[Rfam]
RNA: mir-9/mir-79 microRNA precursor family
RNA sequence: UAGUUUUUCUCUUUGGUUAUCUAGCUGUAUGAGUUUAUGUGAUAUCAUAAAGCUAGAGAACCGAAAGUAUAAACUA
Numbered sequence: 001u002a003g004u005u006u007u008u009c010u011c012u013u014u015g016g017u018u019a020u021c022u023a024g025c026u027g028u029a030u031g032a033g034u035u036u037a038u039g040u041g042a043u044a045u046c047a048u049a050a051a052g053c054u055a056g057a058g059a060a061c062c063g064a065a066a067g068u069a070u071a072a073a074c075u076a
Base pairs, nucleotide, nucleotide: 001076002075003074004073005072008069010067012065013064014063015062016061017060018059020057021056022055023054024053025052026051028049029048030047031046032045